[Rfam]
RNA sequence: CCGUGCUAGAUGGGGAGAUGGCGGUGCCCUGUAACUCGCAAUCCGCCUUAGCGAGGUUGAAUUCCCAUCUGCGGUACGAAAGGGUAAGGUCUGCCUUGUGUAAAGGAGUGUUGACAAUUGGGUCCAACGCAAUGGAAAUUCAUGAAACGGGUCAGGUCCGGAAGGAAGCAGCCCUAAGUGGAACCUUCUAUGUGCCGUGGGGUAGCCUGGUUCGAGCUCACUUUCACAAGUAACGCUUGGUCUCUCGUAUCCAAGAUGGGUGCACGG
Numbered sequence: 001c002c003g004u005g006c007u008a009g010a011u012g013g014g015g016a017g018a019u020g021g022c023g024g025u026g027c028c029c030u031g032u033a034a035c036u037c038g039c040a041a042u043c044c045g046c047c048u049u050a051g052c053g054a055g056g057u058u059g060a061a062u063u064c065c066c067a068u069c070u071g072c073g074g075u076a077c078g079a080a081a082g083g084g085u086a087a088g089g090u091c092u093g094c095c096u097u098g099u100g101u102a103a104a105g106g107a108g109u110g111u112u113g114a115c116a117a118u119u120g121g122g123u124c125c126a127a128c129g130c131a132a133u134g135g136a137a138a139u140u141c142a143u144g145a146a147a148c149g150g151g152u153c154a155g156g157u158c159c160g161g162a163a164g165g166a167a168g169c170a171g172c173c174c175u176a177a178g179u180g181g182a183a184c185c186u187u188c189u190a191u192g193u194g195c196c197g198u199g200g201g202g203u204a205g206c207c208u209g210g211u212u213c214g215a216g217c218u219c220a221c222u223u224u225c226a227c228a229a230g231u232a233a234c235g236c237u238u239g240g241u242c243u244c245u246c247g248u249a250u251c252c253a254a255g256a257u258g259g260g261u262g263c264a265c266g267g
Stems, first nucleotide, its partner, number of pairs: 001267006009058003012030004017025001019023001035055005064260007073251005079245001081243003085239004092232002096229005104222002107218003116212008124201002127198003130192002133190005139182005149174004157166003